RNA sequence: GCAGACUCACUCUGCACCCGGCCGUGGCCCCGGGCGGGUGCUUUUUCCGUCUGCCAUAGGAAUGUCCAGGGUGCUGUGACCACUUUGACCUGUCAAGGGCAAUGCAGCCACCCUGGUACAUGGGU
Number, nucleotide and partner (000 for none) at each position: 001g054002c053003a052004g051005a050006c049007u000008c000009a000010c000011u000012c000013u000014g041015c040016a039017c038018c037019c036020g035021g000022c033023c032024g031025u000026g000027g000028c000029c000030c000031c024032g023033g022034g000035c020036g019037g018038g017039u016040g015041c014042u000043u000044u000045u000046u000047c000048c000049g006050u005051c004052u003053g002054c001055c000056a000057u000058a000059g000060g000061a000062a000063u000064g000065u000066c116067c115068a114069g113070g112071g111072u110073g108074c107075u106076g105077u104078g103079a000080c000081c000082a000083c099084u098085u097086u000087g000088a000089c000090c000091u000092g000093u000094c000095a000096a000097g085098g084099g083100c000101a000102a000103u078104g077105c076106a075107g074108c073109c000110a072111c071112c070113c069114u068115g067116g066117u000118a000119c000120a000121u000122g000123g000124g000125u000

Small nucleolar RNA SNORA77: a 125-nucleotide sequence from Camelus dromedarius.
It is annotated as an H/ACA-box small nucleolar RNA.
ACA63 (SNORA77) is a member of the H/ACA class of snoRNAs that guide the sites of modification of uridines to pseudouridines. This snoRNA was identified by computational screening and its expression in mouse experimentally verified by Northern blot and primer extension analysis. ACA63 is proposed to guide the pseudouridylation of 18S rRNA U814.
Rfam links the family to the GO terms RNA processing and nucleolus.
It scores 123 bits against the family's covariance model.
The family's consensus secondary structure was predicted with RNAalifold.
The source organism's lineage runs through Eukaryota, Gnathostomata, Sarcopterygii, Tylopoda and Camelus.
The literature on the family includes a 2006 paper in RNA by Schattner et al., "A computational screen for mammalian pseudouridylation guide H/ACA RNAs".